[Rfam]
RNA sequence: CCACGAACGUGAUGAGAGAAAUGAUGCGAGUGAUGAUAAUCUUUUAUCAGCUGAUGAGAAAAUGUCACUUCGCUACGUUCUUUCUGAUUCGUGG
Numbered sequence: 001c002c003a004c005g006a007a008c009g010u011g012a013u014g015a016g017a018g019a020a021a022u023g024a025u026g027c028g029a030g031u032g033a034u035g036a037u038a039a040u041c042u043u044u045u046a047u048c049a050g051c052u053g054a055u056g057a058g059a060a061a062a063u064g065u066c067a068c069u070u071c072g073c074u075a076c077g078u079u080c081u082u083u084c085u086g087a088u089u090c091g092u093g094g
Stems, first nucleotide, its partner, number of pairs: 004091004
Shown here is a 94-nucleotide RNA sequence from Rhodamnia argentea, a member of the family "Small nucleolar RNA R32/R81/Z41".
It is annotated as a C/D-box small nucleolar RNA.
Gene Ontology terms of the family: RNA processing and nucleolus.
A reference for the family is Barneche et al. (2001), "Identification of 66 box C/D snoRNAs in Arabidopsis thaliana: extensive gene duplications generated multiple isoforms predicting new ribosomal RNA 2'-O-methylation sites", J Mol Biol.
The match comes from Rfam's covariance-model search (53 bits).
The organism belongs to Rhodamnia, within Eukaryota.